Notes
A member of the RNA family "RNase MRP" from Gongylonema pulchrum, 257 nucleotides long. Clan: RNaseP clan. A search with the family's covariance model found it, with a score of 60 bits. From the family's description: RNase MRP is an enzymatically active ribonucleoprotein with two distinct roles in eukaryotes. On this family, see Piccinelli et al., Nucleic Acids Res 2005: "Identification and analysis of ribonuclease P and MRP RNA in a broad range of eukaryotes".

RNA sequence: CGGUGAUGGGAAGUGGGGCAGUUGCAGCGACACAACGGUCCUUUCUGUGACCGCACCGGUACAGUCUGUAGGCGAAAGUCCCUGAACCAGCGGCUGAAAGAGUCGACCCUCAGAGUGGGUCCACCCGGGCGCGUGCAUGGAUGAGAGUGAUGAGGUCCGAGUGACCGAACUGCUUCCGCGUAGUUGCUCGGCGUUCGUUGUCAGCAAAGUGACGUCUCAGGUUGGAACAGCACAGGGCUUACUCUCACCCGAUCACC
Numbered sequence: 001c002g003g004u005g006a007u008g009g010g011a012a013g014u015g016g017g018g019c020a021g022u023u024g025c026a027g028c029g030a031c032a033c034a035a036c037g038g039u040c041c042u043u044u045c046u047g048u049g050a051c052c053g054c055a056c057c058g059g060u061a062c063a064g065u066c067u068g069u070a071g072g073c074g075a076a077a078g079u080c081c082c083u084g085a086a087c088c089a090g091c092g093g094c095u096g097a098a099a100g101a102g103u104c105g106a107c108c109c110u111c112a113g114a115g116u117g118g119g120u121c122c123a124c125c126c127g128g129g130c131g132c133g134u135g136c137a138u139g140g141a142u143g144a145g146a147g148u149g150a151u152g153a154g155g156u157c158c159g160a161g162u163g164a165c166c167g168a169a170c171u172g173c174u175u176c177c178g179c180g181u182a183g184u185u186g187c188u189c190g191g192c193g194u195u196c197g198u199u200g201u202c203a204g205c206a207a208a209g210u211g212a213c214g215u216c217u218c219a220g221g222u223u224g225g226a227a228c229a230g231c232a233c234a235g236g237g238c239u240u241a242c243u244c245u246c247a248c249c250c251g252a253u254c255a256c257c
Stems, first nucleotide, its partner, number of pairs: 002257006008248001010246002014219006022071006036053005042047001076240003080237004092104004105121005124191002129187003134182001146171003155165003